[Rfam]
RNA sequence: CGCGCCCUGCCAGGAGAGAACCCGGCCGGCGCUUGUUUCAGGCGGCGGACACGGGUCGCCGAAGGCGCAGGACAGGCGGUGAAACGCCUCGCCCGAACGCUCAGGCAAAAGGACUGGCAAGCACCU
Dot-bracket structure: .....(.((((((......((((.............................)))).(((((..(((..((.....................))...))))).))).......)))))).).....
A member of the RNA family "Glycine riboswitch aptamer" from Aquabacterium soli, 126 nucleotides long.
The organism belongs to Aquabacterium, within Bacteria.
Rfam's curators write: This family represents the bacterial glycine riboswitch.